[Rfam]
RNA sequence: AGGAGGAGCAACCGCAGUGGCGGGGCCAGCCCUGCAGCCCUGGAGUCAGCUUCCGCAGUAACUGUGGAGCUCUCAGUCUGCAGGGCUUGGAGGCUCAGGGCGCGG
Numbered sequence: 001a002g003g004a005g006g007a008g009c010a011a012c013c014g015c016a017g018u019g020g021c022g023g024g025g026c027c028a029g030c031c032c033u034g035c036a037g038c039c040c041u042g043g044a045g046u047c048a049g050c051u052u053c054c055g056c057a058g059u060a061a062c063u064g065u066g067g068a069g070c071u072c073u074c075a076g077u078c079u080g081c082a083g084g085g086c087u088u089g090g091a092g093g094c095u096c097a098g099g100g101c102g103c104g105g
Base pairs, nucleotide, nucleotide: 003096004095005094009089010088011087012085013084019078020077021076023074024073025072028071029070030069032067033066034065035064036063040058041057042056
RNA: mir-8834 microRNA precursor family